RNA sequence: GGAAGGGCGACCGACUGUGGGGAGGAAGUGUGGAGCGAAACUGCGAGCCGAUGAACAAGAAUCGGAUAGAAGGCGCUGCCGAGCGGGGCGAGCGGGCACGAAACCGCAAAGCUCUUGUGGCCAAUGCGAAGUGGCGUAGAUCCGGCGGUUGUGCAGGGAAGGAGUGCGUUC
Number, nucleotide and partner (000 for none) at each position: 001g016002g015003a000004a000005g012006g011007g000008c000009g000010a000011c006012c005013g000014a000015c002016u001017g000018u000019g000020g000021g000022g000023a000024g000025g000026a000027a000028g171029u000030g169031u168032g167033g000034a000035g000036c162037g000038a000039a000040a000041c156042u155043g154044c153045g152046a150047g149048c148049c147050g146051a000052u000053g000054a000055a000056c000057a000058a000059g000060a000061a000062u145063c144064g143065g142066a141067u140068a000069g000070a000071a000072g000073g137074c136075g135076c000077u133078g132079c131080c000081g000082a000083g127084c126085g000086g114087g113088g112089c111090g000091a000092g107093c106094g105095g104096g000097c000098a000099c000100g000101a000102a000103a000104c095105c094106g093107c092108a000109a000110a000111g089112c088113u087114c086115u000116u000117g000118u000119g000120g000121c000122c000123a000124a000125u000126g084127c083128g000129a000130a000131g079132u078133g077134g000135c075136g074137u073138a000139g000140a067141u066142c065143c064144g063145g062146c050147g049148g048149u047150u046151g000152u045153g044154c043155a042156g041157g000158g000159a000160a000161g000162g036163a000164g000165u000166g000167c032168g031169u030170u000171c028
RNA: Group II catalytic intron D1-D4-3